[Rfam]
RNA sequence: AGCUAACACACAUCUUUUAGAAUUUUUCUAGUAGGUUUUCUGACUUUGGUCACAAAACCCAA
Numbered sequence: 001a002g003c004u005a006a007c008a009c010a011c012a013u014c015u016u017u018u019a020g021a022a023u024u025u026u027u028c029u030a031g032u033a034g035g036u037u038u039u040c041u042g043a044c045u046u047u048g049g050u051c052a053c054a055a056a057a058c059c060c061a062a
Base pairs, nucleotide, nucleotide: 034059035058036057037056038055039054041052042051043050044049

Background
A member of the RNA family "U7 small nuclear RNA" from Mus musculus, 62 nucleotides long. NCBI's taxonomy places the organism under Eukaryota, Sarcopterygii, Mammalia, Mus, Mus. From the family's description: Animal histone pre-mRNAs are spliced by a different mechanism than nuclear pre-mRNAs and self-splicing introns.